[Rfam]
DUF805b RNA: a 33-nucleotide RNA sequence.
The base pairs follow the family's consensus structure, which is taken from published work.
The family's RNA type in Rfam is cis-regulatory element.
RNA sequence: AGAGCGGAAGCCGAAAAGCUAAAAGAGUAGGCA
Numbered sequence: 001a002g003a004g005c006g007g008a009a010g011c012c013g014a015a016a017a018g019c020u021a022a023a024a025g026a027g028u029a030g031g032c033a
Stems, first nucleotide, its partner, number of pairs: 003020003010032003